[Rfam]
RNA: mir-190 microRNA precursor family
RNA sequence: AGAACUGUUUGAUAUGUUUGAUAUUCGGUUGCCUCAUCACUAUAAAAAACAACUAAAUAUCAGACAUAUUCCUAUAGAUCU
Numbered sequence: 001a002g003a004a005c006u007g008u009u010u011g012a013u014a015u016g017u018u019u020g021a022u023a024u025u026c027g028g029u030u031g032c033c034u035c036a037u038c039a040c041u042a043u044a045a046a047a048a049a050c051a052a053c054u055a056a057a058u059a060u061c062a063g064a065c066a067u068a069u070u071c072c073u074a075u076a077g078a079u080c081u
Stems, first nucleotide, its partner, number of pairs: 005077004011070015027054005